The record is a 68-nucleotide RNA from Lutibacter sp. B1, which matches "Flavo-1 RNA" in Rfam. By type it is a small RNA. NCBI's taxonomy places the organism under Bacteria, Pseudomonadati, Flavobacteriia, Flavobacteriaceae, Lutibacter.
RNA sequence: UUGUGUUAACGAUUGUAGUGGCAUCCUUUUUACAAAGUAAAAAGAUAGAACGGAAAGCGUGACCGCUU
Numbered sequence: 001u002u003g004u005g006u007u008a009a010c011g012a013u014u015g016u017a018g019u020g021g022c023a024u025c026c027u028u029u030u031u032a033c034a035a036a037g038u039a040a041a042a043a044g045a046u047a048g049a050a051c052g053g054a055a056a057g058c059g060u061g062a063c064c065g066c067u068u
Stems, first nucleotide, its partner, number of pairs: 009060003013056002018051002023046003029041005